The record is a 72-nucleotide sequence from Methyloceanibacter stevinii, which matches "tRNA" in Rfam.
The base pairs follow the family's consensus structure, which is taken from published work.
From the family's description: Transfer RNA (tRNA) molecules are approximately 80 nucleotides in length.
By type it is a transfer RNA.
[Rfam]
Nucleotides: 072
Stems, first nucleotide, its partner, number of pairs: 001071007010025004027043005048064005
Number, partner (000 for none) and nucleotide at each position: 001071g002070c003069u004068c005067c006066c007065u008000u009000c010025g011024u012023c013022u014000a015000u016000c017000g018000g019000u020000u021000a022013g023012g024011a025010c026000g027043c028042c029041a030040g031039g032000u033000u034000u035000u036000c037000a038000a039031c040030c041029u042028g043027g044000a045000a046000a047000g048064a049063g050062g051061g052060g053000u054000u055000c056000g057000a058000c059000u060052c061051c062050c063049c064048u065007a066006g067005g068004g069003a070002g071001u072000g